Description: Rfam assigns this 101-nucleotide sequence from Microthlaspi erraticum to the family "mir-395 microRNA precursor family". The family's consensus secondary structure was predicted with PFOLD. Gene Ontology terms of the family: RISC complex and miRNA-mediated post-transcriptional gene silencing. On this family, see Jones-Rhoades and Bartel, Mol Cell 2004: "Computational Identification of Plant MicroRNAs and Their Targets, Including a Stress-Induced miRNA". Rfam describes the family as follows. mir-395 was identified in both Arabidopsis thaliana and Oryza sativa computationally and was later experimentally verified. mir-395 is thought to target mRNAs coding for ATP sulphurylases. The mature sequence is excised from the 3' arm of the hairpin.

[Rfam]
RNA sequence: AUGUCCCCAUGAGUUCCCUUUAACGCUUCAUUGUUAAUACUCAAAAACCACAUCUAUUUGUAUUCAACACUGAAGUGUUUGGGGGGGACUCUUGGUGCCAU
Numbered sequence: 001a002u003g004u005c006c007c008c009a010u011g012a013g014u015u016c017c018c019u020u021u022a023a024c025g026c027u028u029c030a031u032u033g034u035u036a037a038u039a040c041u042c043a044a045a046a047a048c049c050a051c052a053u054c055u056a057u058u059u060g061u062a063u064u065c066a067a068c069a070c071u072g073a074a075g076u077g078u079u080u081g082g083g084g085g086g087g088a089c090u091c092u093u094g095g096u097g098c099c100a101u
Base pairs, nucleotide, nucleotide: 005097007095008094009093011091012090013089014088015087016086017085018084019082020081022080023079024077025076026075027074028073029072030071032069033068034067035066

Rfam 15.1 lists 2,798 matches to the family in 234 species.